Description:
The family of this 169-nucleotide sequence from Thermoflavimicrobium daqui is "PyrR binding site". The source organism's lineage runs through Bacteria, Bacillota, Bacilli, Caryophanales and Thermoflavimicrobium. Rfam classes the family as a cis-regulatory element. The family has 41 seed sequences and 1,498 matches in Rfam 15.1.

RNA sequence: GGAACCUUUAAAUCCAGUCCCGUGAGGCUGGCAAGGGCACGGAUCUAUGAAAUUGAUAGGAGAAGACAGGUGACUUGUAUCCUUUUUGGAAAACCAUCGGAGAGGGUACAAAGAAUCGCCUGCUGAUCCCUUGUGCUUCUUGUCCAGUCACGGAUAAGAAGUUUUUUUA
Numbered sequence: 001g002g003a004a005c006c007u008u009u010a011a012a013u014c015c016a017g018u019c020c021c022g023u024g025a026g027g028c029u030g031g032c033a034a035g036g037g038c039a040c041g042g043a044u045c046u047a048u049g050a051a052a053u054u055g056a057u058a059g060g061a062g063a064a065g066a067c068a069g070g071u072g073a074c075u076u077g078u079a080u081c082c083u084u085u086u087u088g089g090a091a092a093a094c095c096a097u098c099g100g101a102g103a104g105g106g107u108a109c110a111a112a113g114a115a116u117c118g119c120c121u122g123c124u125g126a127u128c129c130c131u132u133g134u135g136c137u138u139c140u141u142g143u144c145c146a147g148u149c150a151c152g153g154a155u156a157a158g159a160a161g162u163u164u165u166u167u168u169a
Base pairs, nucleotide, nucleotide: 005036006035007034008033014031015030016029017028018027019026076110077109078108079107080106081105082104083103084102085101086100087099088098089097133164135162136161137160138159139158140157141156142155143154144153145152